[Rfam]
RNA sequence: CUCAAGGAAGCACUUUGCUUACGUGGACAGAAAAUGCUUCCUUGAAGGCGCGCUUUCUGUCGACGUAGGCAAAGCGCUUCCUUGAGG
Numbered sequence: 001c002u003c004a005a006g007g008a009a010g011c012a013c014u015u016u017g018c019u020u021a022c023g024u025g026g027a028c029a030g031a032a033a034a035u036g037c038u039u040c041c042u043u044g045a046a047g048g049c050g051c052g053c054u055u056u057c058u059g060u061c062g063a064c065g066u067a068g069g070c071a072a073a074g075c076g077c078u079u080c081c082u083u084g085a086g087g
Stems, first nucleotide, its partner, number of pairs: 001086011013074009023064002026061008035052003040047001

The record is an 87-nucleotide RNA from Gossypium barbadense, which matches "MIR7486 microRNA precursor family" in Rfam. Lineage of the source: Eukaryota > Mesangiospermae > Malvales > Malvaceae > Gossypium. Its family is annotated with RISC complex and miRNA-mediated post-transcriptional gene silencing in the Gene Ontology. Rfam 15.1 lists 10,132 matches to the family in 36 species.